[Rfam]
RNA sequence: UGAGACAAGUAGAAGCACCCGCUUCUCACCUGAUUGACGUUCUUUUUAGAAGAACAGUUGACGGGUAACAUUUUCUGAACGUAAGGGAAACGUGUGGGUGCAGUGUGUACCGACACUUUUUUUAAUGU
Numbered sequence: 001u002g003a004g005a006c007a008a009g010u011a012g013a014a015g016c017a018c019c020c021g022c023u024u025c026u027c028a029c030c031u032g033a034u035u036g037a038c039g040u041u042c043u044u045u046u047u048a049g050a051a052g053a054a055c056a057g058u059u060g061a062c063g064g065g066u067a068a069c070a071u072u073u074u075c076u077g078a079a080c081g082u083a084a085g086g087g088a089a090a091c092g093u094g095u096g097g098g099u100g101c102a103g104u105g106u107g108u109a110c111c112g113a114c115a116c117u118u119u120u121u122u123u124a125a126u127g128u
Stems, first nucleotide, its partner, number of pairs: 011026006028066003036059003039055007093115003097111006
The family of this 128-nucleotide RNA from Pontibacillus yanchengensis is "Ribosomal protein L20 leader". This family is a putative r-protein leader autoregulatory structure found in B. subtilis and other low-GC Gram-positive bacteria. It is located in the 5' untranslated regions of mRNAs encoding initiation factor 3 followed by ribosomal proteins L35 and L20 (infC-rpmI-rplT). A Rho-independent transcription terminator structure that is probably involved in regulation is included at the 3' end. By type it is a cis-regulatory leader. Lineage of the source: Bacteria > Bacillati > Caryophanales > Pontibacillus > Pontibacillus yanchengensis.